[Rfam]
Nucleotides: 073
Base pairs, nucleotide, nucleotide: 012061013060014059015058016057017056018055020053021052022051023050024049025048026047027046028045029044030043
Number, partner (000 for none) and nucleotide at each position: 001000u002000g003000g004000a005000a006000c007000u008000g009000u010000g011000g012061a013060g014059u015058g016057u017056g018055a019000c020053a021052a022051u023050g024049g025048u026047g027046u028045u029044u030043g031000u032000g033000u034000c035000c036000u037000g038000u039000u040000u041000a042000u043030c044029a045028a046027a047026c048025g049024c050023c051022a052021u053020u054000a055018u056017c057016a058015c059014a060013c061012u062000a063000a064000a065000u066000a067000g068000c069000u070000c071000c072000a073000g